[Rfam]
Record summary
Rfam assigns this 85-nucleotide RNA sequence from Scleromatobacter humisilvae to the family "c-di-GMP-I riboswitch aptamer".
RNA sequence: GCUGGUCAAUGGCACACCCGCGCGCAAGCUGGGGUCGCAAAGCCACCGGCCCUCGCCGUUCGUCGAGGGCAGCGGAGCUGCCGCC
Numbered sequence: 001g002c003u004g005g006u007c008a009a010u011g012g013c014a015c016a017c018c019c020g021c022g023c024g025c026a027a028g029c030u031g032g033g034g035u036c037g038c039a040a041a042g043c044c045a046c047c048g049g050c051c052c053u054c055g056c057c058g059u060u061c062g063u064c065g066a067g068g069g070c071a072g073c074g075g076a077g078c079u080g081c082c083g084c085c
Stems, first nucleotide, its partner, number of pairs: 012038002017033004022029002041079003046075003049070007
A search with the family's covariance model found it, with a score of 51 bits.